[Rfam]
RNA sequence: UAAAAAUAAAUUAAAAAUACUCAUAUAAUAUAAAGGAUAUGGCUUUAAAGUUUCUACCACGUCGCCGUAAAUGACGUGACUAUGAGUAAUAAAAGAUCAGCC
Numbered sequence: 001u002a003a004a005a006a007u008a009a010a011u012u013a014a015a016a017a018u019a020c021u022c023a024u025a026u027a028a029u030a031u032a033a034a035g036g037a038u039a040u041g042g043c044u045u046u047a048a049a050g051u052u053u054c055u056a057c058c059a060c061g062u063c064g065c066c067g068u069a070a071a072u073g074a075c076g077u078g079a080c081u082a083u084g085a086g087u088a089a090u091a092a093a094a095g096a097u098c099a100g101c102c
Stems, first nucleotide, its partner, number of pairs: 018088008029049001031047005058078007